A member of the RNA family "Pistol ribozyme" from Sphingobacterium sp. ML3W, 70 nucleotides long.
It scores 62 bits against the family's covariance model.
The base pairs follow the family's consensus structure, which is taken from published work.
Taxonomically the source falls in Sphingobacterium (Bacteria, Pseudomonadati, Bacteroidota, Sphingobacteriaceae).

RNA sequence: AGUGGAUUGCGCCACUUUAAAAAGGUUUUAAGCGUAAAGCGUUGCAAGGUUUUGAGCCUUGCAGGUAACA
Number, nucleotide and partner (000 for none) at each position: 001a016002g015003u014004g013005g000006a000007u037008u036009g035010c034011g033012c000013c004014a003015c002016u001017u000018u000019a000020a000021a000022a000023a000024g000025g069026u068027u067028u000029u000030a000031a000032g040033c011034g010035u009036a008037a007038a000039g000040c032041g000042u064043u063044g062045c061046a060047a059048g058049g057050u000051u000052u000053u000054g000055a000056g000057c049058c048059u047060u046061g045062c044063a043064g042065g000066u000067a027068a026069c025070a000